About this RNA: The family of this 132-nucleotide RNA is "Small nucleolar RNA SNORA17". snoRNA ACA 17 belongs to the H/ACA family of snoRNAs and is predicted to guide pseudouridylation of the 28S rRNA at positions U4659 and U4598. It shares the same host gene together with ACA43. NB This family has a high threshold value to exclude a large number of closely related sequences that do not appear to have conserved H and ACA boxes, and may be pseudogenes.
RNA sequence: ACUGCCCCUGGAGGCAUUGCAGAUGUGGCUGCUGUGUCACAUUUGUGUCAUUAGGUAGCAGCGAUUAGAGAGGCUAUGUCUAUGCUCAGCGUUCUGUCCCAUGAACAUUUGAAUGUUUAAUAGUCUGACUCU
Numbered sequence: 001a002c003u004g005c006c007c008c009u010g011g012a013g014g015c016a017u018u019g020c021a022g023a024u025g026u027g028g029c030u031g032c033u034g035u036g037u038c039a040c041a042u043u044u045g046u047g048u049c050a051u052u053a054g055g056u057a058g059c060a061g062c063g064a065u066u067a068g069a070g071a072g073g074c075u076a077u078g079u080c081u082a083u084g085c086u087c088a089g090c091g092u093u094c095u096g097u098c099c100c101a102u103g104a105a106c107a108u109u110u111g112a113a114u115g116u117u118u119a120a121u122a123g124u125c126u127g128a129c130u131c132u
Stems, first nucleotide, its partner, number of pairs: 002061004007055005013049003019046004024041006068129001071126007082116003086112004091106004
Record summary:
Rfam's curators put it in the seed alignment. Rfam 15.1 lists 5,784 matches to the family in 673 species. The family is grouped with related families in Rfam's "SNORA17 clan".